[Rfam]
RNA: Streptomyces-metK RNA
RNA sequence: GGGGAACCGGAUGCCCCAACCACGAGAACGCCGGAUAAACUGGCUCAGGAUCCGCGUCGAGCGCAGCUCUCGAACCGGGUCCUGCAAAUGAUCAGCCAGCAGCCGCUGCAACCCCAGGGAG
Numbered sequence: 001g002g003g004g005a006a007c008c009g010g011a012u013g014c015c016c017c018a019a020c021c022a023c024g025a026g027a028a029c030g031c032c033g034g035a036u037a038a039a040c041u042g043g044c045u046c047a048g049g050a051u052c053c054g055c056g057u058c059g060a061g062c063g064c065a066g067c068u069c070u071c072g073a074a075c076c077g078g079g080u081c082c083u084g085c086a087a088a089u090g091a092u093c094a095g096c097c098a099g100c101a102g103c104c105g106c107u108g109c110a111a112c113c114c115c116a117g118g119g120a121g
Stems, first nucleotide, its partner, number of pairs: 049081006057073005097108004
Dot-bracket structure: ................................................((((((..(((((.......)))))..))))))...............((((....)))).............